Annotation:
A member of the RNA family "sok antitoxin (CssrC)" from Kluyvera cryocrescens, 175 nucleotides long. For this family Rfam cites "An antisense RNA controls synthesis of an SOS-induced toxin evolved from an antitoxin" (Kawano et al., Mol Microbiol, 2007). Rfam's curators write: Also identified in Shigella as CssrC. Rfam classes the family as an antitoxin RNA.
RNA sequence: GGGUGCUUGAGGCUAUCUGCUUCAGGCAUUACCCGACAAGCAGAUAGAAGAAAGCCCCAGAUAACAUUACGCGUCCUGCAAGACGCUUAACAUUAAUCUGAGGCAAUAUCUAUGCUUAGCAUACGUAGAUUAGCCUCUUACCGACCAAAAGGUCAAGGAGAAGCAGGCUAUGAAG
Numbered sequence: 001g002g003g004u005g006c007u008u009g010a011g012g013c014u015a016u017c018u019g020c021u022u023c024a025g026g027c028a029u030u031a032c033c034c035g036a037c038a039a040g041c042a043g044a045u046a047g048a049a050g051a052a053a054g055c056c057c058c059a060g061a062u063a064a065c066a067u068u069a070c071g072c073g074u075c076c077u078g079c080a081a082g083a084c085g086c087u088u089a090a091c092a093u094u095a096a097u098c099u100g101a102g103g104c105a106a107u108a109u110c111u112a113u114g115c116u117u118a119g120c121a122u123a124c125g126u127a128g129a130u131u132a133g134c135c136u137c138u139u140a141c142c143g144a145c146c147a148a149a150a151g152g153u154c155a156a157g158g159a160g161a162a163g164c165a166g167g168c169u170a171u172g173a174a175g
Stems, first nucleotide, its partner, number of pairs: 001058003005055004013047010026034001059099004063094002067090002100137005108130004141167002145163001